A member of the RNA family "Small nucleolar RNA SNORD116" from Sciurus vulgaris, 83 nucleotides long. Rfam 15.1 lists 3,260 matches to the family in 170 species. The family's RNA type in Rfam is C/D-box small nucleolar RNA.
RNA sequence: GGAUCAAUGAUGACUUACAAAAAUGGAUCUUGUUGGAAUCUGAACAAAAUGAGUGUCCAAACCACUUCUGUGAGCUGAGGUCC
Numbered sequence: 001g002g003a004u005c006a007a008u009g010a011u012g013a014c015u016u017a018c019a020a021a022a023a024u025g026g027a028u029c030u031u032g033u034u035g036g037a038a039u040c041u042g043a044a045c046a047a048a049a050u051g052a053g054u055g056u057c058c059a060a061a062c063c064a065c066u067u068c069u070g071u072g073a074g075c076u077g078a079g080g081u082c083c
Stems, first nucleotide, its partner, number of pairs: 001083005027054002030052002033047003